[Rfam]
RNA sequence: AAAUUAAUUAAGAGGCAACUCUUAACUGGCCAGUUGAGGAAAGGCCGAGAGGUUUAAGCUCAACGGGCAGAAAGUUCUGCAGAGUAGUACUAAAAUUGCAGAACGGGAGGCUUGGCGGUAGUACUAAAACGACGGGCCAA
Dot-bracket structure: .......(((((((....)))))))(((.((.((((((....((((....))))....)))))).)))))...((((((((.....[[[[[.....))))))))....((((((.((..]]]]].....)).))))))..
RNA: IMES-2 RNA motif